[Rfam]
RNA sequence: GCUCCUCUGUGGGUGGGGAUUUGUUGCACUACUGUAUGUAUGAAAAGUAUUGCACUUGUCCCGGCCUGUGGGUGAAAG
Numbered sequence: 001g002c003u004c005c006u007c008u009g010u011g012g013g014u015g016g017g018g019a020u021u022u023g024u025u026g027c028a029c030u031a032c033u034g035u036a037u038g039u040a041u042g043a044a045a046a047g048u049a050u051u052g053c054a055c056u057u058g059u060c061c062c063g064g065c066c067u068g069u070g071g072g073u074g075a076a077a078g
Stems, first nucleotide, its partner, number of pairs: 004074001006072001009069006016062005023055002026053003030049004

Overview
This 78-nucleotide sequence from Xenopus tropicalis belongs to the Rfam family "mir-92 microRNA precursor family". Clan: mir-92 microRNA precursor clan. About the family: This family represents the microRNA precursor mir-92. Human miR-92 has two predicted hairpin precursor sequences: mir-92-1 on chromosome 13 and mir-92-2 on chromosome X. miR-92 has also been cloned from mouse embryonic stem cells. The mature sequence is excised from the 3' arm of the hairpin. Rfam 15.1 lists 1,347 matches to the family in 653 species. The literature on the family includes a 2002 paper in Genes Dev by Mourelatos et al., "miRNPs: a novel class of ribonucleoproteins containing numerous microRNAs". Gene Ontology terms of the family: miRNA-mediated post-transcriptional gene silencing and RISC complex. The organism belongs to Silurana, within Eukaryota.